Background: The record is a 393-nucleotide sequence from Vacuolonema iberomarrocanum, which matches "Bacterial RNase P class A" in Rfam. The match comes from Rfam's covariance-model search (245 bits). Rfam classes the family as a ribozyme.
RNA sequence: AAGAGGGGGUGUGGGUGGCUGCAGAUUCCUGAUGGAAUUUGAGGAAAGUCCGGGCUCCCGAAAGACCAAACUUGCUGGGUAACGCCCAGUGCGGGUGACCGUGAGGAUAGUGCCACAGAAACAUACCGCCGAUGGAGCCAUUGGCUCACAGGUAAGGGUGCAAGGGUGCGGUAAGAGCGCACCAGCAACGUCGAGAGGCGUUGGCUCGGUAAACCCCGGUUGGGAGCAAGGUCGAAGGAGCGAUGGUUGGUCUUUUCCCGGCUCCGAGGUGCGGAGCAAUCCGUACCUGCCAAUCCGCUUGAGGUGUCUGGCAACAGGCGUCCCAGAUAGAUAGCUGCCCCUGGAUGCUGCGGCAUUCAGGAACAGAACCCGGCUUACGGCUCCCUCUUCUCU
Numbered sequence: 001a002a003g004a005g006g007g008g009g010u011g012u013g014g015g016u017g018g019c020u021g022c023a024g025a026u027u028c029c030u031g032a033u034g035g036a037a038u039u040u041g042a043g044g045a046a047a048g049u050c051c052g053g054g055c056u057c058c059c060g061a062a063a064g065a066c067c068a069a070a071c072u073u074g075c076u077g078g079g080u081a082a083c084g085c086c087c088a089g090u091g092c093g094g095g096u097g098a099c100c101g102u103g104a105g106g107a108u109a110g111u112g113c114c115a116c117a118g119a120a121a122c123a124u125a126c127c128g129c130c131g132a133u134g135g136a137g138c139c140a141u142u143g144g145c146u147c148a149c150a151g152g153u154a155a156g157g158g159u160g161c162a163a164g165g166g167u168g169c170g171g172u173a174a175g176a177g178c179g180c181a182c183c184a185g186c187a188a189c190g191u192c193g194a195g196a197g198g199c200g201u202u203g204g205c206u207c208g209g210u211a212a213a214c215c216c217c218g219g220u221u222g223g224g225a226g227c228a229a230g231g232u233c234g235a236a237g238g239a240g241c242g243a244u245g246g247u248u249g250g251u252c253u254u255u256u257c258c259c260g261g262c263u264c265c266g267a268g269g270u271g272c273g274g275a276g277c278a279a280u281c282c283g284u285a286c287c288u289g290c291c292a293a294u295c296c297g298c299u300u301g302a303g304g305u306g307u308c309u310g311g312c313a314a315c316a317g318g319c320g321u322c323c324c325a326g327a328u329a330g331a332u333a334g335c336u337g338c339c340c341c342u343g344g345a346u347g348c349u350g351c352g353g354c355a356u357u358c359a360g361g362a363a364c365a366g367a368a369c370c371c372g373g374c375u376u377a378c379g380g381c382u383c384c385c386u387c388u389u390c391u392c393u
Stems, first nucleotide, its partner, number of pairs: 001389010011378001014339007022041008046376003050373005055226004065270003069221003073218002075089005090104001091102004105216002110214002112210003126157002128153003133148003165183006185205001186203007230296002237287002240284003303322008